[Rfam]
The family of this 83-nucleotide RNA sequence from Callithrix jacchus is "mir-629 microRNA precursor family". Pairs were carried over by alignment from the consensus structure, which was predicted with RNAalifold.

RNA sequence: AGGGGGAGGGGCUGGGUUUCCAUUGGGAGAACUUUUACCUUGAACUGGGAGGUUCUCCCAUUGGAAACCCAGCCCCUCCCCUC
Numbered sequence: 001a002g003g004g005g006g007a008g009g010g011g012c013u014g015g016g017u018u019u020c021c022a023u024u025g026g027g028a029g030a031a032c033u034u035u036u037a038c039c040u041u042g043a044a045c046u047g048g049g050a051g052g053u054u055c056u057c058c059c060a061u062u063g064g065a066a067a068c069c070c071a072g073c074c075c076c077u078c079c080c081c082u083c
Stems, first nucleotide, its partner, number of pairs: 002082021024060013